[Rfam]
Shown here is a 112-nucleotide RNA sequence from Eucalyptus grandis, a member of the family "mir-399 microRNA precursor family". The family has 13 seed sequences and 2,396 matches in Rfam 15.1. mir-399 was identified in both Arabidopsis thaliana and Oryza sativa computationally and was later experimentally verified. mir-399 is thought to target mRNAs coding for a phosphatase transporter. The mature sequence is excised from the 3' arm of the hairpin. For this family Rfam cites "Computational Identification of Plant MicroRNAs and Their Targets, Including a Stress-Induced miRNA" (Jones-Rhoades and Bartel, Mol Cell, 2004). Gene Ontology terms of the family: miRNA-mediated post-transcriptional gene silencing and RISC complex. Lineage of the source: Eukaryota > Embryophyta > Magnoliopsida > Myrtaceae > Eucalyptus. The base pairs follow the family's consensus structure, which was predicted with PFOLD.

RNA sequence: AAGUGAAUGGCGGGGCAAUUCUCCUUUGGCGGGAGCAAGAACAGCAUUAACAUUUGCAUGCAUGCCAAUGCAGUUCUCUCCUGCCAAAGGAGAAUUACGCUGUUAUUCACUG
Numbered sequence: 001a002a003g004u005g006a007a008u009g010g011c012g013g014g015g016c017a018a019u020u021c022u023c024c025u026u027u028g029g030c031g032g033g034a035g036c037a038a039g040a041a042c043a044g045c046a047u048u049a050a051c052a053u054u055u056g057c058a059u060g061c062a063u064g065c066c067a068a069u070g071c072a073g074u075u076c077u078c079u080c081c082u083g084c085c086a087a088a089g090g091a092g093a094a095u096u097a098c099g100c101u102g103u104u105a106u107u108c109a110c111u112g
Stems, first nucleotide, its partner, number of pairs: 005108005011102003015098001017096003021092004027086009